[Rfam]
Nucleotides: 177
Base pairs, nucleotide, nucleotide: 014058015057016056017055018054019053059089060088061086062085063084064083065082067081108171109170110169111168112167113166114165115164116163117162118161119160122140123139124138125137126136127135
Number, partner (000 for none) and nucleotide at each position: 001000a002000c003000a004000c005000a006000a007000g008000a009000g010000a011000g012000g013000a014058g015057g016056u017055g018054g019053u020000c021000c022000a023000a024000a025000g026000u027000u028000g029000u030000a031000u032000a033000g034000c035000a036000a037000c038000c039000g040000g041000a042000c043000u044000c045000g046000u047000g048000a049000g050000g051000u052000g053019g054018c055017u056016g057015u058014c059089c060088g061086c062085u063084a064083g065082g066000a067081c068000c069000g070000c071000c072000c073000u074000c075000g076000g077000u078000g079000a080000c081067g082065c083064c084063u085062a086061g087000u088060c089059g090000u091000a092000a093000a094000c095000c096000c097000a098000g099000g100000c101000a102000g103000c104000c105000a106000c107000c108171c109170g110169a111168c112167c113166c114165c115164u116163g117162g118161a119160c120000u121000c122140u123139g124138a125137g126136c127135g128000c129000u130000g131000g132000u133000c134000c135127c136126g137125c138124u139123c140122a141000g142000c143000c144000c145000g146000u147000u148000a149000a150000c151000g152000c153000g154000g155000g156000a157000g158000u159000c160119g161118u162117c163116c164115a165114g166113g167112g168111g169110u170109u171108g172000u173000c174000c175000c176000a177000u
The family of this 177-nucleotide sequence from Lentzea aerocolonigenes is "Actinobacteria sRNA Ms_IGR-5". On this family, see Li et al., RNA 2013: "Identification of small RNAs in Mycobacterium smegmatis using heterologous Hfq". It is annotated as a small RNA. It scores 84 bits against the family's covariance model.